[Rfam]
RNA sequence: CACCGGUGGAGACAACACAGGAAGUUUCAGUCGGUUGUACGCCAGUGUGAGCGGUAAGCCCCGCGGCCUGCUUUUCCGGGCCUGUCCUUCGUCUUCUUCGCCGUCUGGCCUCUCCUGACCCCGGUCUUCUGUCGCUCUCAGAUCAGUUACUGCUCUGGUUCUGCGGCCGGUUGCUUGAUUGUACCACUUCUGCUGAUUGCACCGGCCUACGGCGCCGCCAAGAUGAAGCUGUGUCUGGUGGCUGCGGUGCUUCUG
Numbered sequence: 001c002a003c004c005g006g007u008g009g010a011g012a013c014a015a016c017a018c019a020g021g022a023a024g025u026u027u028c029a030g031u032c033g034g035u036u037g038u039a040c041g042c043c044a045g046u047g048u049g050a051g052c053g054g055u056a057a058g059c060c061c062c063g064c065g066g067c068c069u070g071c072u073u074u075u076c077c078g079g080g081c082c083u084g085u086c087c088u089u090c091g092u093c094u095u096c097u098u099c100g101c102c103g104u105c106u107g108g109c110c111u112c113u114c115c116u117g118a119c120c121c122c123g124g125u126c127u128u129c130u131g132u133c134g135c136u137c138u139c140a141g142a143u144c145a146g147u148u149a150c151u152g153c154u155c156u157g158g159u160u161c162u163g164c165g166g167c168c169g170g171u172u173g174c175u176u177g178a179u180u181g182u183a184c185c186a187c188u189u190c191u192g193c194u195g196a197u198u199g200c201a202c203c204g205g206c207c208u209a210c211g212g213c214g215c216c217g218c219c220a221a222g223a224u225g226a227a228g229c230u231g232u233g234u235c236u237g238g239u240g241g242c243u244g245c246g247g248u249g250c251u252u253c254u255g
Base pairs, nucleotide, nucleotide: 004244005243006242007241009239017159018158027124028123030121033120034119035118058109059108060107061103063101064100065099066098165175166174167173
Dot-bracket structure: ...((((.(.......((........((.(..(((......................((((.((((...............................)))).)...)))........)))).)).................................)).....(((.....)))...............................................................).))))...........